[Rfam]
RNA sequence: UUCCAUGCUGUGACCCUUUAAAGGGAAGCGCUUUUUGUUGUCUGAAAGGAACCAAAGGCCUUCCCUUUAGAGUGUUACCGUUUGAGA
Number, nucleotide and partner (000 for none) at each position: 001u087002u086003c000004c084005a083006u000007g081008c080009u000010g078011u077012g076013a075014c074015c000016c072017u071018u070019u000020a068021a067022a066023g065024g064025g063026a062027a061028g060029c000030g000031c057032u056033u055034u054035u000036u000037g000038u000039u051040g000041u000042c000043u000044g000045a000046a000047a000048g000049g000050a000051a039052c000053c000054a034055a033056a032057g031058g000059c000060c028061u027062u026063c025064c024065c023066u022067u021068u020069a000070g018071a017072g016073u000074g014075u013076u012077a011078c010079c000080g008081u007082u000083u005084g004085a000086g002087a001